[Rfam]
Nucleotides: 088
Base pairs, nucleotide, nucleotide: 003081004080005079006078007077008076009075010074011073012072013070014069015068019050020049022048023047024046025045026044027043028042029041033087035085054067055066056065057064
Number, partner (000 for none) and nucleotide at each position: 001000u002000a003081g004080a005079g006078g007077u008076a009075u010074a011073u012072g013070c014069g015068u016000c017000a018000a019050g020049u021000g022048u023047c024046a025045a026044c027043u028042g029041g030000u031000u032000a033087g034000u035085g036000g037000a038000u039000g040000a041029u042028u043027a044026g045025u046024u047023g048022a049020a050019c051000g052000a053000a054067c055066a056065u057064a058000a059000g060000u061000a062000u063000u064057u065056a066055u067054g068015g069014c070013g071000g072012u073011g074010u075009a076008u077007a078006u079005u080004u081003c082000u083000g084000a085035u086000c087033c088000g
A member of the RNA family "THF (Tetrahydrofolate) riboswitch aptamer" from Acholeplasma laidlawii, 88 nucleotides long. From the family's description: Tetrahydrofolate (THF) riboswitch was first reported for Ames et al. as an RNA motif in 5' untranslated (5'-UTR)regions of folate transport and biosynthesis genes in Firmicutes genomes. Its family is annotated with tetrahydrofolate metabolic process in the Gene Ontology.